[Rfam]
RNA sequence: CGACAAUGAAAUAUGGUUCCCAAUAUAAUUUAGACAAUAUGGGUCUAAAGUUUCUACCGAGCAACCGUAAAUUGUUCGACUAUUGGGAAGAGAUACCUGUGU
Numbered sequence: 001c002g003a004c005a006a007u008g009a010a011a012u013a014u015g016g017u018u019c020c021c022a023a024u025a026u027a028a029u030u031u032a033g034a035c036a037a038u039a040u041g042g043g044u045c046u047a048a049a050g051u052u053u054c055u056a057c058c059g060a061g062c063a064a065c066c067g068u069a070a071a072u073u074g075u076u077c078g079a080c081u082a083u084u085g086g087g088a089a090g091a092g093a094u095a096c097c098u099g100u101g102u
Stems, first nucleotide, its partner, number of pairs: 018088008029049007058078007

Shown here is a 102-nucleotide RNA from Capillibacterium thermochitinicola, a member of the family "Purine riboswitch aptamer". Pairs were carried over by alignment from the consensus structure, which is taken from published work. Taxonomically the source falls in Capillibacterium (Bacteria, Bacillati, Bacillota). Gene Ontology term of the family: purine nucleobase biosynthetic process. Riboswitches are metabolite binding domains within certain messenger RNAs that serve as precision sensors for their corresponding targets.